Source information: The record is an 80-nucleotide RNA from Polaromonas naphthalenivorans, which matches "int-alpA RNA" in Rfam.

RNA sequence: GCCACGCCUAGCUAUCGGCUGAUCCCCGAUGGUGAAAACCGGGACACCCUGACCUGGCGGCGCUGGCUUUCUUAUCAGAG
Numbered sequence: 001g002c003c004a005c006g007c008c009u010a011g012c013u014a015u016c017g018g019c020u021g022a023u024c025c026c027c028g029a030u031g032g033u034g035a036a037a038a039c040c041g042g043g044a045c046a047c048c049c050u051g052a053c054c055u056g057g058c059g060g061c062g063c064u065g066g067c068u069u070u071c072u073u074a075u076c077a078g079a080g
Stems, first nucleotide, its partner, number of pairs: 001067004005062004011033008039057005048080001050078001

Acidobacteria (1 example), Planctomycetes (1 example), Proteobacteria. Rfam classes the family as a small RNA.